[Rfam]
RNA sequence: AAAAUAAGGGAGCAAUACCACCUUCUUGUUUUAUCAAGAGGGCAAUAUUGCUCCUUUU
Number, nucleotide and partner (000 for none) at each position: 001a000002a000003a000004a000005u000006a057007a056008g055009g054010g053011a052012g051013c050014a049015a048016u047017a046018c000019c000020a000021c042022c000023u040024u039025c038026u037027u036028g035029u000030u000031u000032u000033a000034u000035c028036a027037a026038g025039a024040g023041g000042g021043c000044a000045a000046u017047a016048u015049u014050g013051c012052u011053c010054c009055u008056u007057u006058u000
The family of this 58-nucleotide sequence from Hoya pottsii is "Plastid-psbA-4 3UTR RNA". Pairs were carried over by alignment from the consensus structure, which was predicted with LocARNA. Lineage of the source: Eukaryota > Streptophyta > Spermatophyta > eudicotyledons > Hoya. Rfam's curators put it in the seed alignment. A reference for the family is Richter et al. (2023), "Retrograde signaling in plants: A critical review focusing on the GUN pathway and beyond", Plant Commun.